Nucleotides: 081
Base pairs, nucleotide, nucleotide: 005025006024007023008022009021010020047075048074049073050072051071052070
Number, partner (000 for none) and nucleotide at each position: 001000u002000u003000c004000a005025u006024g007023g008022g009021g010020u011000a012000g013000c014000g015000c016000g017000a018000c019000c020010a021009c022008c023007c024006c025005g026000u027000g028000a029000g030000g031000c032000c033000c034000c035000g036000g037000c038000c039000c040000a041000a042000g043000g044000a045000u046000c047075g048074c049073a050072u051071c052070c053000a054000c055000u056000g057000a058000c059000c060000c061000u062000u063000u064000c065000a066000g067000a068000a069000a070052g071051g072050a073049u074048g075047c076000u077000u078000u079000a080000u081000g